[Rfam]
RNA: mir-2774 microRNA precursor family
Organism: Bombyx mori
RNA sequence: ACAACAUUGGGACCGUCGGUCUACCGAGCAAUAUCACCCUCUCGGUGGAUGAUCUUCCUUUCCC
Numbered sequence: 001a002c003a004a005c006a007u008u009g010g011g012a013c014c015g016u017c018g019g020u021c022u023a024c025c026g027a028g029c030a031a032u033a034u035c036a037c038c039c040u041c042u043c044g045g046u047g048g049a050u051g052a053u054c055u056u057c058c059u060u061u062c063c064c
Stems, first nucleotide, its partner, number of pairs: 010058003015053003020049009